[Rfam]
RNA sequence: AGGCAUUCUGAAGACCUGCUGUCUAGGCUACAAGCUGAGAACCUAGUUUCUCUCGAUUCAUUUCGCCUAGGGGAAAGUCCCCGGACCCGUGGCAGAGAGUGCCGUGCGCAAAGCGUACCUCCAGUCUGCGUGCUCAGAAUACAACCGGCUAAGAAGUCGAGCGUGACCGAGCCGCUGAGAACAGACGGGAAGCUGUCAAUUCCUGUAGUAACGCAGGUGAUGUAAUGAAAGUUACAUCAACUUAACGGGGCUCACUAGCAGAAUGUC
Numbered sequence: 001a002g003g004c005a006u007u008c009u010g011a012a013g014a015c016c017u018g019c020u021g022u023c024u025a026g027g028c029u030a031c032a033a034g035c036u037g038a039g040a041a042c043c044u045a046g047u048u049u050c051u052c053u054c055g056a057u058u059c060a061u062u063u064c065g066c067c068u069a070g071g072g073g074a075a076a077g078u079c080c081c082c083g084g085a086c087c088c089g090u091g092g093c094a095g096a097g098a099g100u101g102c103c104g105u106g107c108g109c110a111a112a113g114c115g116u117a118c119c120u121c122c123a124g125u126c127u128g129c130g131u132g133c134u135c136a137g138a139a140u141a142c143a144a145c146c147g148g149c150u151a152a153g154a155a156g157u158c159g160a161g162c163g164u165g166a167c168c169g170a171g172c173c174g175c176u177g178a179g180a181a182c183a184g185a186c187g188g189g190a191a192g193c194u195g196u197c198a199a200u201u202c203c204u205g206u207a208g209u210a211a212c213g214c215a216g217g218u219g220a221u222g223u224a225a226u227g228a229a230a231g232u233u234a235c236a237u238c239a240a241c242u243u244a245a246c247g248g249g250g251c252u253c254a255c256u257a258g259c260a261g262a263a264u265g266u267c
Stems, first nucleotide, its partner, number of pairs: 002267009014218006022071007037052005076252002079250004091103004104118006120190003124186005133179004146174004156167004220237006